The record is a 165-nucleotide RNA sequence from Sphaerisporangium rubeum, which matches "SAM riboswitch aptamer (S box leader)" in Rfam. About the family: The SAM riboswitch is found upstream of a number of genes which code for proteins involved in methionine or cysteine biosynthesis in Gram-positive bacteria. NCBI's taxonomy places the organism under Bacteria, Bacillati, Actinomycetota, Streptosporangiales, Sphaerisporangium. It scores 69 bits against the family's covariance model.
RNA sequence: UGCUCAUCCAGAGGGGUGGAGGGACCGGCCCUGCGAAGCCCCGGCAACCCUCCCGGCUGUGGUCAUCCGCGUCUGCCGAACGACGCGUGUCCGACCCGUAGAGACCAGCCGGGACAGGUGCCAAUUCCGGCCUGCGGCCACGGUGGCCGCAGGUGCAGAUGAGGA
Numbered sequence: 001u002g003c004u005c006a007u008c009c010a011g012a013g014g015g016g017u018g019g020a021g022g023g024a025c026c027g028g029c030c031c032u033g034c035g036a037a038g039c040c041c042c043g044g045c046a047a048c049c050c051u052c053c054c055g056g057c058u059g060u061g062g063u064c065a066u067c068c069g070c071g072u073c074u075g076c077c078g079a080a081c082g083a084c085g086c087g088u089g090u091c092c093g094a095c096c097c098g099u100a101g102a103g104a105c106c107a108g109c110c111g112g113g114a115c116a117g118g119u120g121c122c123a124a125u126u127c128c129g130g131c132c133u134g135c136g137g138c139c140a141c142g143g144u145g146g147c148c149g150c151a152g153g154u155g156c157a158g159a160u161g162a163g164g165a
Stems, first nucleotide, its partner, number of pairs: 001165001003163006013042005021031003025130004043122004048118002051114009126157001131153009